[Rfam]
RNA sequence: GGAUCAAGUGAUGAGAGAUUAACUGCAACAAUAUGAUGGGGUUAUUACUCCUGUGAUUCCCAAGUAUUUAUGUCUCUGAUGAUC
Dot-bracket structure: ((.(((...............................((((.......))))...........................)))))
Numbered sequence: 001g002g003a004u005c006a007a008g009u010g011a012u013g014a015g016a017g018a019u020u021a022a023c024u025g026c027a028a029c030a031a032u033a034u035g036a037u038g039g040g041g042u043u044a045u046u047a048c049u050c051c052u053g054u055g056a057u058u059c060c061c062a063a064g065u066a067u068u069u070a071u072g073u074c075u076c077u078g079a080u081g082a083u084c
Stems, first nucleotide, its partner, number of pairs: 001084002004082003038052004